[Rfam]
RNA sequence: CGCUGCGAGGCGACAAUCAGGGUCCAGGUGAAUAGCCCCGAUUUGAAUAUCGGGGCUUUUUGUUAUCUGGACUUUGGCAUCGGUUUGGCGAUGCAUAUUUAAACUGGGCUGCGAGCCCUUUUUUU
Numbered sequence: 001c002g003c004u005g006c007g008a009g010g011c012g013a014c015a016a017u018c019a020g021g022g023u024c025c026a027g028g029u030g031a032a033u034a035g036c037c038c039c040g041a042u043u044u045g046a047a048u049a050u051c052g053g054g055g056c057u058u059u060u061u062g063u064u065a066u067c068u069g070g071a072c073u074u075u076g077g078c079a080u081c082g083g084u085u086u087g088g089c090g091a092u093g094c095a096u097a098u099u100u101a102a103a104c105u106g107g108g109c110u111g112c113g114a115g116c117c118c119u120u121u122u123u124u125u
Stems, first nucleotide, its partner, number of pairs: 032059001034057009106118004
RNA: Gammaprotebacteria rimP leader
Organism: Oceanimonas doudoroffii